[Rfam]
A member of the RNA family "PhotoRC-II RNA", 88 nucleotides long. The base pairs follow the family's consensus structure, which is taken from published work. It is one of the family's seed sequences.
RNA sequence: UGACAUUAUAAUCCCCCUAACCGAGAUCAUGGGGUAAUAAUAUCUCUCAUAUCCACUAGUGAAGGGAUUAGUGGAAAUAUCCGUAUCG
Numbered sequence: 001u002g003a004c005a006u007u008a009u010a011a012u013c014c015c016c017c018u019a020a021c022c023g024a025g026a027u028c029a030u031g032g033g034g035u036a037a038u039a040a041u042a043u044c045u046c047u048c049a050u051a052u053c054c055a056c057u058a059g060u061g062a063a064g065g066g067a068u069u070a071g072u073g074g075a076a077a078u079a080u081c082c083g084u085a086u087c088g
Stems, first nucleotide, its partner, number of pairs: 013034004018029001023046005053074007
Dot-bracket structure: ............[[[[.[....(((((.].]]]].......)))))......(((((((........)))))))..............